[Rfam]
RNA: mir-458 microRNA precursor family
RNA sequence: GUGCAGAUAGCAGCGCCAUUUACAGAGCUAUAAGCAUCAUAGUUGUCAUAGCUCUUUGAAUGGUACUGCCAUAUGCAC
Numbered sequence: 001g002u003g004c005a006g007a008u009a010g011c012a013g014c015g016c017c018a019u020u021u022a023c024a025g026a027g028c029u030a031u032a033a034g035c036a037u038c039a040u041a042g043u044u045g046u047c048a049u050a051g052c053u054c055u056u057u058g059a060a061u062g063g064u065a066c067u068g069c070c071a072u073a074u075g076c077a078c
Stems, first nucleotide, its partner, number of pairs: 002077003007072002011068003015064007024055008